Notes
The family of this 125-nucleotide RNA sequence from Carlito syrichta is "U4atac minor spliceosomal RNA". Rfam describes the family as follows. U4atac is an essential component of the minor U12-type spliceosome complex which is required for removal of the rarer class of eukaryotic introns (AT-AC, U12-type). For this family Rfam cites "Evolutionary conservation of minor U12-type spliceosome between plants and humans" (Lorkovic et al., RNA, 2005).
RNA sequence: GCCAUCUUUUUCUUGGGGUACACUGCUGUCCAAUGAGUGCCUAAGGAGGGCAGUACUGCUAAUGCCUACACAGCACGCCCACAUGUUCUAGAGCUCUGCUUUACCCUGGUGCAAUUUUGGGGGAG
Numbered sequence: 001g002c003c004a005u006c007u008u009u010u011u012c013u014u015g016g017g018g019u020a021c022a023c024u025g026c027u028g029u030c031c032a033a034u035g036a037g038u039g040c041c042u043a044a045g046g047a048g049g050g051c052a053g054u055a056c057u058g059c060u061a062a063u064g065c066c067u068a069c070a071c072a073g074c075a076c077g078c079c080c081a082c083a084u085g086u087u088c089u090a091g092a093g094c095u096c097u098g099c100u101u102u103a104c105c106c107u108g109g110u111g112c113a114a115u116u117u118u119g120g121g122g123g124a125g
Stems, first nucleotide, its partner, number of pairs: 006018004021058002025054007038044001082111003089103006
The family has 61 seed sequences and 1,648 matches in Rfam 15.1. The organism belongs to Carlito, within Eukaryota.